RNA sequence: UAUAGUUAAUAGCAAACCUAUCGAAAGAUAGGGACGCAAAGCUAUGGGUCUAAGGGAAACAUCCUAUGAUUGCCAGGUUGCCUAU
Numbered sequence: 001u002a003u004a005g006u007u008a009a010u011a012g013c014a015a016a017c018c019u020a021u022c023g024a025a026a027g028a029u030a031g032g033g034a035c036g037c038a039a040a041g042c043u044a045u046g047g048g049u050c051u052a053a054g055g056g057a058a059a060c061a062u063c064c065u066a067u068g069a070u071u072g073c074c075a076g077g078u079u080g081c082c083u084a085u
Base pairs, nucleotide, nucleotide: 012037013036017032018031019030020029021028022027040079041078042077043076045075046074047073048070049069050068055064056063057062
c-di-GMP-I riboswitch aptamer: an 85-nucleotide RNA from Vallitalea pronyensis. On this family, see Weinberg et al., Nucleic Acids Res 2007: "Identification of 22 candidate structured RNAs in bacteria using the CMfinder comparative genomics pipeline".